About this RNA: This 54-nucleotide sequence from Pseudomonas sp. SDI belongs to the Rfam family "terC RNA". The source organism's lineage runs through Bacteria, Pseudomonadati, Gammaproteobacteria, Pseudomonadales and Pseudomonas. It is annotated as a cis-regulatory element.
[Rfam]
RNA sequence: ACGUGACGCCGGGCCCCUCUGACGGCUGCCAAGCCGCCAUGUCGGAGUCACAGU
Number, nucleotide and partner (000 for none) at each position: 001a000002c000003g000004u000005g000006a048007c047008g000009c045010c044011g043012g042013g000014c000015c000016c000017c000018u000019c000020u000021g000022a000023c036024g035025g034026c033027u032028g000029c000030c000031a000032a027033g026034c025035c024036g023037c000038c000039a000040u000041g000042u012043c011044g010045g009046a000047g007048u006049c000050a000051c000052a000053g000054u000